[Rfam]
RNA sequence: AUUUAAAUUAAAUAAUAAGUAUGUAUAUCAUUGAUAAUAAGGUUUGAUAGUUUCUAGCUGCUAACCGUAAACAAGCAGGCUACAUAAUUUAGUAGAGAUACA
Numbered sequence: 001a002u003u004u005a006a007a008u009u010a011a012a013u014a015a016u017a018a019g020u021a022u023g024u025a026u027a028u029c030a031u032u033g034a035u036a037a038u039a040a041g042g043u044u045u046g047a048u049a050g051u052u053u054c055u056a057g058c059u060g061c062u063a064a065c066c067g068u069a070a071a072c073a074a075g076c077a078g079g080c081u082a083c084a085u086a087a088u089u090u091a092g093u094a095g096a097g098a099u100a101c102a
Stems, first nucleotide, its partner, number of pairs: 018088001020086006030048005058078005
Annotation
The family of this 102-nucleotide sequence from endosymbiont 'TC1' of Trimyema compressum is "Purine riboswitch aptamer". Riboswitches are metabolite binding domains within certain messenger RNAs that serve as precision sensors for their corresponding targets. Allosteric rearrangement of mRNA structure is mediated by ligand binding, and this results in modulation of gene expression. A class of riboswitches that selectively recognises guanine and becomes saturated at concentrations as low as 5 nM. In Bacillus subtilis, this mRNA motif is located on at least five separate transcriptional units that together encode 17 genes that are mostly involved in purine transport and purine nucleotide biosynthesis. It has also been shown that some members of this family are specific for adenine instead. Pairs were carried over by alignment from the consensus structure, which is taken from published work. Its family is annotated with purine nucleobase biosynthetic process in the Gene Ontology.